[Rfam]
RNA sequence: CACUCUGGAGAGAGCGGCUGCAGCCGCCGCCGAAGGGGCACGAAACGCCGCCGCGUUUCCAAACUCUCAGGCAAAAGGACAGAGGG
Numbered sequence: 001c002a003c004u005c006u007g008g009a010g011a012g013a014g015c016g017g018c019u020g021c022a023g024c025c026g027c028c029g030c031c032g033a034a035g036g037g038g039c040a041c042g043a044a045a046c047g048c049c050g051c052c053g054c055g056u057u058u059c060c061a062a063a064c065u066c067u068c069a070g071g072c073a074a075a076a077g078g079a080c081a082g083a084g085g086g
Stems, first nucleotide, its partner, number of pairs: 001086001003084005014027004029072003032068002036066003042059005

A member of the RNA family "Glycine riboswitch aptamer" from Rhodanobacter spathiphylli, 86 nucleotides long. From the family's description: This family represents the bacterial glycine riboswitch. Glycine riboswitches usually consist of two metabolite-binding aptamers domains with similar structures in tandem. The aptamers cooperatively bind glycine to regulate the expression of downstream genes. A search with the family's covariance model found it, with a score of 60 bits. Taxonomically the source falls in Rhodanobacter spathiphylli (Bacteria, Pseudomonadati, Lysobacterales, Rhodanobacteraceae).